[Rfam]
RNA sequence: AGGUCAUGUCUCCUGCACCUUUAUCACGGGAGGCACUCGGUCACGCUGUGGGUCCAAUGGACCUUAGACGUUUAUCGUCAGGGGUGUGAUGUGAGGAUGGGUUUAAUGCCCU
Numbered sequence: 001a002g003g004u005c006a007u008g009u010c011u012c013c014u015g016c017a018c019c020u021u022u023a024u025c026a027c028g029g030g031a032g033g034c035a036c037u038c039g040g041u042c043a044c045g046c047u048g049u050g051g052g053u054c055c056a057a058u059g060g061a062c063c064u065u066a067g068a069c070g071u072u073u074a075u076c077g078u079c080a081g082g083g084g085u086g087u088g089a090u091g092u093g094a095g096g097a098u099g100g101g102u103u104u105a106a107u108g109c110c111c112u
Stems, first nucleotide, its partner, number of pairs: 001020004007035007036095004040090008050064006067079004099111004
This 112-nucleotide RNA sequence from Paenibacillus darwinianus belongs to the Rfam family "epsC RNA". Rfam 15.1 lists 450 matches to the family in 334 species. Pairs were carried over by alignment from the consensus structure, which is taken from published work.